[Rfam]
Nucleotides: 079
Base pairs, nucleotide, nucleotide: 001079002078003077004076
Number, partner (000 for none) and nucleotide at each position: 001079g002078g003077c004076c005000g006000a007000u008000g009000a010000u011000g012000u013000a014000u015000c016000a017000a018000u019000a020000u021000a022000u023000u024000u025000g026000c027000u028000a029000c030000u031000c032000u033000u034000g035000a036000g037000c038000g039000a040000g041000u042000c043000u044000a045000u046000g047000a048000c049000g050000a051000c052000a053000u054000u055000u056000u057000a058000a059000a060000u061000c062000a063000c064000c065000a066000a067000g068000a069000u070000c071000g072000c073000u074000g075000a076004g077003g078002u079001c